[Rfam]
RNA sequence: GGCUCAUCCAGAGGGGUAGAGGGACCGGCCCGACGACACCCCGGCAACCGGCGGCCCGCCGCACGCGGCAGGCAAGACCGGUGCCAAUUCCGACCCGCGAGCCCGCGGGGAAGAUGAGGA
Numbered sequence: 001g002g003c004u005c006a007u008c009c010a011g012a013g014g015g016g017u018a019g020a021g022g023g024a025c026c027g028g029c030c031c032g033a034c035g036a037c038a039c040c041c042c043g044g045c046a047a048c049c050g051g052c053g054g055c056c057c058g059c060c061g062c063a064c065g066c067g068g069c070a071g072g073c074a075a076g077a078c079c080g081g082u083g084c085c086a087a088u089u090c091c092g093a094c095c096c097g098c099g100a101g102c103c104c105g106c107g108g109g110g111a112a113g114a115u116g117a118g119g120a
Stems, first nucleotide, its partner, number of pairs: 003118006013042005021031003026092003043085004048081004089112001094109006
A member of the RNA family "SAM riboswitch aptamer (S box leader)" from Actinomycetospora sp. TBRC 11914, 120 nucleotides long. The SAM riboswitch is found upstream of a number of genes which code for proteins involved in methionine or cysteine biosynthesis in Gram-positive bacteria. The match comes from Rfam's covariance-model search (66 bits). Gene Ontology term of the family: regulation of gene expression. Lineage of the source: Bacteria > Bacillati > Actinomycetes > Pseudonocardiales > Actinomycetospora.